[Rfam]
RNA sequence: UUAAAUGUUAUCUAGGGUUCCGCGAUUUUAUAUAUCGGCUGGUCCAAGAGAUAACCACAACUUGUAGUUGUGUCACGGAGGGAUAAAAGCCCGGGAGAU
Numbered sequence: 001u002u003a004a005a006u007g008u009u010a011u012c013u014a015g016g017g018u019u020c021c022g023c024g025a026u027u028u029u030a031u032a033u034a035u036c037g038g039c040u041g042g043u044c045c046a047a048g049a050g051a052u053a054a055c056c057a058c059a060a061c062u063u064g065u066a067g068u069u070g071u072g073u074c075a076c077g078g079a080g081g082g083a084u085a086a087a088a089g090c091c092c093g094g095g096a097g098a099u
Stems, first nucleotide, its partner, number of pairs: 007055006015045002020042002022039001023037004028032001056072006074094001076097001080092003

Shown here is a 99-nucleotide RNA from Fontibacillus panacisegetis, a member of the family "Guanidine-I riboswitch aptamer". About the family: This family represents a conserved RNA structure found upstream of the ykkC and yxkD genes in Bacillus subtilis and related genes in other bacteria.